[Rfam]
RNA sequence: CUUCUUUGAGCCUUGGCACUGGGAGAAUUCACAGUUGAUUUUCAAUAUUCUGUGGUUCUGCGGGUGCCAAAACUUAAGCAAA
Numbered sequence: 001c002u003u004c005u006u007u008g009a010g011c012c013u014u015g016g017c018a019c020u021g022g023g024a025g026a027a028u029u030c031a032c033a034g035u036u037g038a039u040u041u042u043c044a045a046u047a048u049u050c051u052g053u054g055g056u057u058c059u060g061c062g063g064g065u066g067c068c069a070a071a072a073c074u075u076a077a078g079c080a081a082a
Stems, first nucleotide, its partner, number of pairs: 003080001005078006013070006020063001022061001023059001025058003029055006

Background: This 82-nucleotide sequence from Drosophila kikkawai belongs to the Rfam family "mir-263 microRNA precursor family". Taxonomically the source falls in Sophophora (Eukaryota, Neoptera, Eumetabola, Panorpida). On this family, see Li et al., BMC Genomics 2009: "Direct sequencing and expression analysis of a large number of miRNAs in Aedes aegypti and a multi-species survey of novel mosquito miRNAs". The match comes from Rfam's covariance-model search (71 bits). The family has 52 seed sequences and 368 matches in Rfam 15.1.